[Rfam]
RNA sequence: CGAGUGAAUCAUGGCUAAGGAACUAGGCAAAAUGGUCUCGUAACUUCGGGAGAAGAGACGCCCCCCUAUGGGGGGCCGCAGUGAAGAGGCCCAGGCGACUGUUUAUCAAAAACACAGGACUCUGCAAAAUCGAAAGAUGAAGUAUAGGGUCUGACACCUGCCCGGUGCUGGAAGGUUAAGGAAGGAAGUUAGCUUUUAGCGAAGCUUUUGACUGAAGCCCCAGUAAACGGCGGCCGUAACUAUAACGGUCCUAAGGUAGCGAAAUUCCUUGUCGGGUAAGUUCCGACCUGCACGAAUGGUGUAACGAUCUGGGCACUGUCUCAGCCAUGAGCUCG
Numbered sequence: 001c002g003a004g005u006g007a008a009u010c011a012u013g014g015c016u017a018a019g020g021a022a023c024u025a026g027g028c029a030a031a032a033u034g035g036u037c038u039c040g041u042a043a044c045u046u047c048g049g050g051a052g053a054a055g056a057g058a059c060g061c062c063c064c065c066c067u068a069u070g071g072g073g074g075g076c077c078g079c080a081g082u083g084a085a086g087a088g089g090c091c092c093a094g095g096c097g098a099c100u101g102u103u104u105a106u107c108a109a110a111a112a113c114a115c116a117g118g119a120c121u122c123u124g125c126a127a128a129a130u131c132g133a134a135a136g137a138u139g140a141a142g143u144a145u146a147g148g149g150u151c152u153g154a155c156a157c158c159u160g161c162c163c164g165g166u167g168c169u170g171g172a173a174g175g176u177u178a179a180g181g182a183a184g185g186a187a188g189u190u191a192g193c194u195u196u197u198a199g200c201g202a203a204g205c206u207u208u209u210g211a212c213u214g215a216a217g218c219c220c221c222a223g224u225a226a227a228c229g230g231c232g233g234c235c236g237u238a239a240c241u242a243u244a245a246c247g248g249u250c251c252u253a254a255g256g257u258a259g260c261g262a263a264a265u266u267c268c269u270u271g272u273c274g275g276g277u278a279a280g281u282u283c284c285g286a287c288c289u290g291c292a293c294g295a296a297u298g299g300u301g302u303a304a305c306g307a308u309c310u311g312g313g314c315a316c317u318g319u320c321u322c323a324g325c326c327a328u329g330a331g332c333u334c335g
Stems, first nucleotide, its partner, number of pairs: 001335004009330008018321003035059005044049001060076007077081001089314007096306002100114003117152008125142001129138003155301004160231003165228002167224005174219003180213002184209006192200002232250006251255001261288001271287006